[Rfam]
RNA: ZMP/ZTP riboswitch aptamer (pfl RNA motif)
Organism: Georgenia muralis
RNA sequence: GGUCCCGGCCGUGACUGGCGAGCCAGGUGGAGACCACCACCGGGGAGCGGCCGCAGUCCCCUGCUGGAGCACCGCGCGCCUGGGUGCCUGGG
Dot-bracket structure: ..(..(((((((..(([[[[......((((......))))..))..)))))))..)............(((((...]]]]..))))).....
Numbered sequence: 001g002g003u004c005c006c007g008g009c010c011g012u013g014a015c016u017g018g019c020g021a022g023c024c025a026g027g028u029g030g031a032g033a034c035c036a037c038c039a040c041c042g043g044g045g046a047g048c049g050g051c052c053g054c055a056g057u058c059c060c061c062u063g064c065u066g067g068a069g070c071a072c073c074g075c076g077c078g079c080c081u082g083g084g085u086g087c088c089u090g091g092g
Stems, first nucleotide, its partner, number of pairs: 003056001006053007015044002017080004027040004069087005